[Rfam]
A member of the RNA family "MIR1435 microRNA precursor family" from Miscanthus lutarioriparius, 201 nucleotides long.
The family has 3 seed sequences and 1,765 matches in Rfam 15.1.
RNA sequence: UAUUUUUUGUCCUAAGUCAAACUUCUCUAAACUGACCAAUUUAUAUAAAAACGUAUUAACAUCUACAAGACCAAAUUAAUCCUCUAUAGACAUAUUUCAUAGUGGUUUAUGAAAUUAGUUGCUUUUGUUGUUGUAGAUGUUAUAGCAUUUUUCUAUAAAUUUGAUCAAAGUUAGAGAAGUUUGACUUAGGACCAAACUAAA
Number, nucleotide and partner (000 for none) at each position: 001u000002a000003u000004u000005u196006u195007u194008u000009g192010u191011c000012c189013u188014a187015a186016g185017u184018c183019a182020a181021a180022c179023u178024u177025c176026u175027c174028u000029a000030a000031a000032c000033u167034g166035a165036c000037c000038a000039a000040u000041u000042u000043a000044u155045a154046u000047a152048a151049a150050a149051a148052c000053g000054u145055a000056u000057u000058a141059a140060c139061a138062u137063c136064u135065a134066c133067a132068a000069g000070a000071c000072c127073a126074a125075a124076u000077u000078a000079a000080u000081c000082c000083u000084c000085u000086a000087u000088a000089g000090a000091c000092a000093u000094a000095u000096u000097u000098c000099a000100u000101a000102g000103u000104g000105g000106u000107u000108u000109a000110u000111g000112a000113a000114a000115u000116u000117a000118g000119u000120u000121g000122c000123u000124u075125u074126u073127g072128u000129u000130g000131u000132u067133g066134u065135a064136g063137a062138u061139g060140u059141u058142a000143u000144a000145g054146c000147a000148u051149u050150u049151u048152u047153c000154u045155a044156u000157a000158a000159a000160u000161u000162u000163g000164a000165u035166c034167a033168a000169a000170g000171u000172u000173a000174g027175a026176g025177a024178a023179g022180u021181u020182u019183g018184a017185c016186u015187u014188a013189g012190g000191a010192c009193c000194a007195a006196a005197c000198u000199a000200a000201a000